Small nucleolar RNA ACA64: a 120-nucleotide RNA sequence from Oncorhynchus kisutch. The source organism's lineage runs through Eukaryota, Craniata, Actinopterygii, Osteoglossocephalai and Oncorhynchus. Rfam 15.1 lists 9,537 matches to the family in 620 species. The base pairs follow the family's consensus structure, which was predicted with WAR. A reference for the family is Schattner et al. (2006), "A computational screen for mammalian pseudouridylation guide H/ACA RNAs", RNA. It scores 66 bits against the family's covariance model. Rfam links the family to the GO terms nucleolus and RNA processing.

RNA sequence: ACCGUCUGAAAAUUACCUCAGGUGUACCAGUUGCUUGGGGUGAGAUAACAGUGCCUACAGUAUUGUGGUACGUUAAGCUUAUUGCCUGCUCUGUAUGAUUAAACCCAUGUGCCCACAAUG
Numbered sequence: 001a002c003c004g005u006c007u008g009a010a011a012a013u014u015a016c017c018u019c020a021g022g023u024g025u026a027c028c029a030g031u032u033g034c035u036u037g038g039g040g041u042g043a044g045a046u047a048a049c050a051g052u053g054c055c056u057a058c059a060g061u062a063u064u065g066u067g068g069u070a071c072g073u074u075a076a077g078c079u080u081a082u083u084g085c086c087u088g089c090u091c092u093g094u095a096u097g098a099u100u101a102a103a104c105c106c107a108u109g110u111g112c113c114c115a116c117a118a119u120g
Base pairs, nucleotide, nucleotide: 006051007050008049010046013043014042015041016040021035022034023033024032067113069111070110071109072108073107079101081099082098083097089093